[Rfam]
RNA sequence: ACUGAUUCCGCCAUAGUAAUUCGGCUCAGUACGAGAGGAACCGCCGAGUCAGAUACUUGGUAAUGCCCUUGUCUGAAAAGACAAUGGGGCGAAGCUAACAUCUGUAGUCUAAUGACUGAACGCCUCUAAGUCAGAAGACGUGCUAGGUGCGGAGUCAUUUUCCCAAUGAUGUCACCCGACUAAGGAUACGUCCGCCUGUGCGGAUGCUGGAGCAUAACCGUUGGAUUCCCUGUUAAGCCCACCCGGCUGAAGCAGGUACCAAGCAUGAUAAUUCCAUAUGUCAUUGGGUUAAAUCCUCUGCAUACGACUUUGUUGCAACUGGGUAUUGUAAGUGGUAGAGUGGCCUUGCUGCUACGAUCCACUGAGAUUCAUCCCGUGUUGCUAAGAUUUGC
Numbered sequence: 001a002c003u004g005a006u007u008c009c010g011c012c013a014u015a016g017u018a019a020u021u022c023g024g025c026u027c028a029g030u031a032c033g034a035g036a037g038g039a040a041c042c043g044c045c046g047a048g049u050c051a052g053a054u055a056c057u058u059g060g061u062a063a064u065g066c067c068c069u070u071g072u073c074u075g076a077a078a079a080g081a082c083a084a085u086g087g088g089g090c091g092a093a094g095c096u097a098a099c100a101u102c103u104g105u106a107g108u109c110u111a112a113u114g115a116c117u118g119a120a121c122g123c124c125u126c127u128a129a130g131u132c133a134g135a136a137g138a139c140g141u142g143c144u145a146g147g148u149g150c151g152g153a154g155u156c157a158u159u160u161u162c163c164c165a166a167u168g169a170u171g172u173c174a175c176c177c178g179a180c181u182a183a184g185g186a187u188a189c190g191u192c193c194g195c196c197u198g199u200g201c202g203g204a205u206g207c208u209g210g211a212g213c214a215u216a217a218c219c220g221u222u223g224g225a226u227u228c229c230c231u232g233u234u235a236a237g238c239c240c241a242c243c244c245g246g247c248u249g250a251a252g253c254a255g256g257u258a259c260c261a262a263g264c265a266u267g268a269u270a271a272u273u274c275c276a277u278a279u280g281u282c283a284u285u286g287g288g289u290u291a292a293a294u295c296c297u298c299u300g301c302a303u304a305c306g307a308c309u310u311u312g313u314u315g316c317a318a319c320u321g322g323g324u325a326u327u328g329u330a331a332g333u334g335g336u337a338g339a340g341u342g343g344c345c346u347u348g349c350u351g352c353u354a355c356g357a358u359c360c361a362c363u364g365a366g367a368u369u370c371a372u373c374c375c376g377u378g379u380u381g382c383u384a385a386g387a388u389u390u391g392c
Stems, first nucleotide, its partner, number of pairs: 004156008014145004019049007050104005058097003064091005069084006107139002113133005163287007291390005296312001300308001315382005321375003325368002332362004337358001340355005
Rfam assigns this 392-nucleotide part of an RNA from Volvox reticuliferus to the family "Eukaryotic large subunit ribosomal RNA". Rfam links the family to the GO terms ribosome and structural constituent of ribosome. It scores 3306 bits against the family's covariance model.